The family of this 110-nucleotide sequence from Mycolicibacterium brumae is "TPP riboswitch aptamer (THI element)".
RNA sequence: GCGGGGUACCACGGGAGCGCUAUCCGAAAGCGCUGAGAGGACGGCUGGGGCCGUCGACCGUAUGAACCUGUCCGGGUAAUGCCGGCGUAGGGAGGAUUGCGAUGAGUGUU
Number, nucleotide and partner (000 for none) at each position: 001g000002c000003g000004g000005g000006g098007u000008a000009c095010c094011a061012c060013g059014g058015g000016a000017g033018c032019g031020c030021u029022a000023u000024c000025c000026g000027a000028a000029a021030g020031c019032g018033c017034u000035g000036a000037g000038a000039g000040g055041a054042c053043g052044g051045c000046u000047g000048g000049g000050g000051c044052c043053g042054u041055c040056g000057a000058c014059c013060g012061u011062a000063u000064g000065a000066a000067c091068c090069u089070g088071u000072c085073c084074g083075g082076g000077u000078a000079a000080u000081g000082c075083c074084g073085g072086c000087g000088u070089a069090g068091g067092g000093a000094g010095g009096a000097u000098u006099g000100c000101g000102a000103u000104g000105a000106g000107u000108g000109u000110u000

Pairs were carried over by alignment from the consensus structure, which is taken from published work.